[Rfam]
Nucleotides: 190
Base pairs, nucleotide, nucleotide: 006185007184008183009182010181011180016084017083018082019081020080021079023078024077025076033069034068035067036066037065038064039063088118089117090116091115092114093113094112095111096110097109098108099107119145120144122142123141124140125139126138127137128136129135147175148174149173150172151171152170153169154168155167156166
Number, partner (000 for none) and nucleotide at each position: 001000a002000g003000u004000u005000g006185a007184g008183g009182u010181a011180g012000a013000g014000g015000c016084g017083c018082g019081g020080u021079a022000a023078g024077u025076c026000a027000a028000u029000a030000g031000u032000a033069c034068u035067u036066u037065u038064a039063c040000a041000a042000a043000a044000g045000g046000c047000a048000c049000g050000g051000a052000a053000a054000g055000c056000c057000g058000a059000u060000g061000g062000c063039g064038u065037a066036a067035a068034a069033g070000g071000a072000a073000a074000g075000g076025g077024g078023c079021u080020a081019c082018c083017g084016c085000c086000g087000a088118a089117g090116u091115a092114c093113a094112g095111c096110c097109u098108a099107u100000a101000u102000u103000c104000c105000g106000g107099a108098u109097a110096g111095g112094u113093u114092g115091u116090a117089c118088u119145g120144g121000g122142c123141c124140u125139a126138u127137g128136c129135c130000g131000a132000a133000u134000a135129g136128g137127u138126a139125u140124a141123g142122g143000a144120c145119u146000g147175u148174c149173a150172c151171c152170a153169a154168a155167a156166a157000a158000c159000c160000c161000c162000c163000a164000g165000u166156u167155u168154u169153u170152u171151g172150g173149u174148g175147g176000a177000g178000c179000g180011c181010u182009a183008c184007u185006u186000c187000a188000a189000a190000u

Shown here is a 190-nucleotide RNA sequence from Thermovenabulum gondwanense, a member of the family "Lysine riboswitch aptamer".
About the family: Riboswitches are metabolite binding domains within certain messenger RNAs that serve as precision sensors for their corresponding targets.
Lineage of the source: Bacteria > Bacillati > Clostridia > Thermosediminibacterales > Thermovenabulum.
A reference for the family is Mandal et al. (2003), "Riboswitches Control Fundamental Biochemical Pathways in Bacillus subtilis and Other Bacteria", Cell.